[Rfam]
RNA: U4 spliceosomal RNA
RNA sequence: AUCUUUGCGCUUGGGGCAAUGACGCAGCUUAUGAGGUCAUACCGAGGCGCGUCAAUUGCUGGUUGAAAACUAUUUCCAAACCCCCUCUUUGGCCCUCGGGCCACUGAGAAUUUCUGGAAGGGUCCCUCCUUUUCGAAGGUGUGAGAACC
Number, nucleotide and partner (000 for none) at each position: 001a000002u000003c000004u000005u000006u000007g000008c000009g000010c000011u000012u000013g000014g000015g000016g000017c000018a000019a000020u000021g053022a052023c051024g050025c049026a000027g048028c047029u046030u000031a000032u000033g000034a000035g043036g042037u041038c000039a000040u000041a037042c036043c035044g000045a000046g029047g028048c027049g025050c024051g023052u022053c021054a000055a000056u000057u000058g000059c000060u000061g000062g000063u000064u000065g000066a000067a000068a000069a000070c000071u000072a000073u000074u000075u000076c000077c000078a000079a000080a000081c000082c000083c000084c000085c108086u107087c106088u000089u000090u103091g102092g101093c100094c099095c000096u000097c000098g000099g094100g093101c092102c091103a090104c000105u000106g087107a086108g085109a000110a000111u000112u000113u000114c000115u000116g000117g000118a000119a000120g000121g149122g148123u147124c000125c000126c000127u000128c000129c000130u000131u000132u000133u000134c000135g000136a000137a000138g000139g000140u000141g000142u000143g000144a000145g000146a000147a123148c122149c121